[Rfam]
RNA sequence: UUUUAUAAUUAGCAAACCGUUAGAAAUAGCGGGACGCAAAGCUAUGGGGGCUAAGGUGUUGGAGAAAUUAUGUGACAAUACUAUGCCAGCCCGGCCGCCGGA
Numbered sequence: 001u002u003u004u005a006u007a008a009u010u011a012g013c014a015a016a017c018c019g020u021u022a023g024a025a026a027u028a029g030c031g032g033g034a035c036g037c038a039a040a041g042c043u044a045u046g047g048g049g050g051c052u053a054a055g056g057u058g059u060u061g062g063a064g065a066a067a068u069u070a071u072g073u074g075a076c077a078a079u080a081c082u083a084u085g086c087c088a089g090c091c092c093g094g095c096c097g098c099c100g101g102a
Stems, first nucleotide, its partner, number of pairs: 012037002017032006041095003046092003049087003056081006
The record is a 102-nucleotide sequence from Acetatifactor muris, which matches "c-di-GMP-I riboswitch aptamer" in Rfam.